[Rfam]
RNA sequence: UUUGUUGUAAAAGCGCCAGGACUGCAAGAUGACCGGAUCAAACCUUGCAGUUGACGAGGUGGAGGCGAUCGAAUGCUCGGCGGAUACCUCCCGGUUGUGCGUCCAAACCGUGGGGUCACAAGACAAACCAACAAGGUAACUUGUUGUACAAAACUUGUGACAGGACGUAGA
Numbered sequence: 001u002u003u004g005u006u007g008u009a010a011a012a013g014c015g016c017c018a019g020g021a022c023u024g025c026a027a028g029a030u031g032a033c034c035g036g037a038u039c040a041a042a043c044c045u046u047g048c049a050g051u052u053g054a055c056g057a058g059g060u061g062g063a064g065g066c067g068a069u070c071g072a073a074u075g076c077u078c079g080g081c082g083g084a085u086a087c088c089u090c091c092c093g094g095u096u097g098u099g100c101g102u103c104c105a106a107a108c109c110g111u112g113g114g115g116u117c118a119c120a121a122g123a124c125a126a127a128c129c130a131a132c133a134a135g136g137u138a139a140c141u142u143g144u145u146g147u148a149c150a151a152a153a154c155u156u157g158u159g160a161c162a163g164g165a166c167g168u169a170g171a
Stems, first nucleotide, its partner, number of pairs: 020052008061091005069080004092110004096105002115161007129146007
A member of the RNA family "glmS glucosamine-6-phosphate activated ribozyme aptamer" from Hazenella coriacea, 171 nucleotides long.